[Rfam]
Rfam assigns this 196-nucleotide RNA from Macrophomina phaseolina to the family "U2 spliceosomal RNA". Lineage of the source: Eukaryota > Fungi > dothideomyceta > Macrophomina > Macrophomina phaseolina. About the family: U2 is a small nuclear RNA (snRNA) component of the spliceosome (involved in pre-mRNA splicing). Complementary binding between U2 snRNA (in an area lying towards the 5' end but 3' to hairpin I) and the branchpoint sequence (BPS) of the intron results the bulging out of an unpaired adenosine, on the BPS, which initiates a nucleophilic attack at the intronic 5' splice site, thus starting the first of two transesterification reactions that mediate splicing.

RNA sequence: CCAGCUCUCUUUGCCUUUUGGCUUAGAUCAAGUGUAGUAACUGUUCUUUCUAGUUUAAUAUCUAGAACGUCCCCACGGGGGCAUCUUCAGAUUCAACCAGUUUUUGGAAACCGGCUGGAGGGGCGCUGGGCUCCGCUCAUCUUCACCGGCCACAGUGUCGCUCGUAUUGCACUGCAUCGGGCCGAUGCGAACGGCG
Dot-bracket structure: .......(((..(((....)))..)))....................((((((........)))))).(((((....)))))..............................((((((.(......(((((...)))))....).))))))...((((((((((.............))))).)))))........
Rfam links the family to the GO terms mRNA branch site recognition, pre-mRNA branch point binding and U2 snRNP. The family's consensus secondary structure is taken from published work. The match comes from Rfam's covariance-model search (121 bits).